The family of this 560-nucleotide part of an RNA from Leuconostoc fallax is "Bacterial large subunit ribosomal RNA".
RNA sequence: UAAUAAGGGCGCAUGGUGGAUGCCUUGGCACUAGGAGCCGAUGAAGGACGUGACUAACUACGAUAAGCUUCGGGGAGCGGUAAGUACGCUAUGAUCCGGAGAUUUCCGAAUGGGGAAACCUAACAUCUUAGGAUGUUACUAAUACAUGAAUACAUAGUGUAUUAGAGGAAUACGCUGUGAACUGAAACAUCUCAUUAGCAGCAGGAGCAGAAAGAAAAAUCGAUUCCCAUAGUAGCGGCGAGCGAAGUGGGAAGAGCCCAAACCAGCAUGCUUGCAUGUUGGGGUUGUAGGACUGUCGUUGAGUUACCAAGUAAUGAUAUAGGUGAACAAGUUGGGAAGCUUGAUCAAAGAGGGUGAUAAUCCCGUAACCGAAAUAUGAUUACCUCUAGACAGGAUCCUGAGUACGGCCGGACACGUGAAAUCCGGUCGGAAUCCGGGAGGACCAUCUCCCAAGGCUAAAUACUCCCUAGUGACCGAUAGUGAACCAGUACCGUGAGGGAAAGGUGAAAAGCACCCCGGAAGGGGAGUGAAAUAGUUCCUGAAACCAUGACGCCUACAAG
Number, nucleotide and partner (000 for none) at each position: 001u000002a000003a000004u000005a000006a000007g555008g554009g553010c552011g551012c549013a548014u547015g546016g545017u000018g000019g000020a000021u000022g539023c504024c503025u000026u000027g475028g474029c472030a471031c470032u469033a468034g467035g466036a464037g463038c168039c167040g000041a000042u000043g000044a000045a000046g107047g106048a105049c062050g061051u060052g000053a000054c000055u000056a000057a000058c000059u000060a051061c050062g049063a000064u000065a000066a000067g000068c101069u100070u099071c098072g097073g096074g095075g000076a000077g089078c088079g087080g000081u000082a000083a000084g000085u000086a000087c079088g078089c077090u000091a000092u000093g000094a000095u074096c073097c072098g071099g070100a069101g068102a000103u000104u000105u048106c047107c046108g000109a000110a000111u000112g121113g120114g119115g000116a000117a000118a000119c114120c113121u112122a137123a136124c135125a134126u133127c132128u000129u000130a000131g000132g127133a126134u125135g124136u123137u122138a000139c165140u164141a163142a162143u161144a160145c159146a158147u157148g000149a000150a000151u000152a000153c000154a000155u000156a000157g147158u146159g145160u144161a143162u142163u141164a140165g139166a000167g039168g038169a000170a000171u000172a000173c204174g202175c201176u200177g199178u198179g000180a000181a000182c000183u000184g191185a190186a000187a000188c000189a000190u185191c184192u000193c000194a000195u000196u000197a000198g178199c177200a176201g175202c174203a000204g173205g000206a000207g000208c000209a000210g000211a000212a000213a000214g221215a220216a000217a000218a000219a000220u215221c214222g000223a000224u460225u252226c251227c250228c249229a248230u000231a000232g000233u000234a000235g243236c242237g000238g000239c000240g000241a000242g236243c235244g000245a000246a000247g000248u229249g228250g227251g226252a225253a000254g000255a457256g456257c455258c454259c000260a000261a000262a000263c282264c281265a280266g279267c278268a277269u276270g000271c000272u000273u000274g000275c000276a269277u268278g267279u266280u265281g264282g263283g000284g000285u000286u000287g000288u000289a399290g398291g397292a000293c393294u392295g391296u390297c389298g000299u000300u000301g000302a000303g000304u000305u000306a000307c000308c000309a385310a000311g383312u382313a381314a380315u379316g000317a377318u376319a375320u374321a000322g370323g369324u368325g000326a000327a000328c343329a342330a341331g340332u339333u000334g000335g000336g000337a000338a000339g332340c331341u330342u329343g328344a000345u000346c350347a000348a000349a000350g346351a000352g364353g363354g362355u000356g000357a000358u000359a000360a000361u000362c354363c353364c352365g000366u000367a000368a324369c323370c322371g000372a000373a000374a320375u319376a318377u317378g000379a315380u314381u313382a312383c311384c000385u309386c000387u000388a000389g297390a296391c295392a294393g293394g000395a000396u000397c291398c290399u289400g000401a000402g000403u000404a000405c429406g428407g427408c426409c425410g424411g423412a422413c000414a000415c000416g000417u000418g000419a000420a000421a000422u412423c411424c410425g409426g408427u407428c406429g405430g000431a000432a000433u000434c000435c000436g451437g450438g449439a448440g447441g000442a000443c000444c000445a000446u000447c440448u439449c438450c437451c436452a000453a000454g258455g257456c256457u255458a000459a000460a224461u000462a000463c037464u036465c000466c035467c034468u033469a032470g031471u030472g029473a000474c028475c027476g000477a000478u000479a000480g000481u000482g000483a000484a000485c000486c000487a000488g000489u000490a000491c498492c497493g000494u000495g000496a000497g492498g491499g000500a000501a000502a000503g024504g023505u000506g000507a000508a000509a000510a000511g000512c000513a000514c525515c524516c523517c522518g000519g000520a000521a000522g517523g516524g515525g514526a000527g000528u000529g000530a000531a000532a000533u000534a000535g000536u000537u000538c000539c022540u000541g000542a000543a000544a000545c016546c015547a014548u013549g012550a000551c011552g010553c009554c008555u007556a000557c000558a000559a000560g000